Record summary: Rfam assigns this 83-nucleotide sequence from Equus caballus to the family "mir-8941 microRNA precursor family". Rfam's curators put it in the seed alignment. Rfam 15.1 lists 57 matches to the family in 2 species. The family's consensus secondary structure was predicted with RNAalifold.
RNA sequence: GAGGGAGGUGAUGACACUGCAGAGGACUCUGCUGGGGAGGCUGGCAGCACAGUCUCUGAGAGCCUCUGCAUCAUGCCUGCCUG
Numbered sequence: 001g002a003g004g005g006a007g008g009u010g011a012u013g014a015c016a017c018u019g020c021a022g023a024g025g026a027c028u029c030u031g032c033u034g035g036g037g038a039g040g041c042u043g044g045c046a047g048c049a050c051a052g053u054c055u056c057u058g059a060g061a062g063c064c065u066c067u068g069c070a071u072c073a074u075g076c077c078u079g080c081c082u083g
Stems, first nucleotide, its partner, number of pairs: 002082003006078004011074004018070008027062004032058001036057008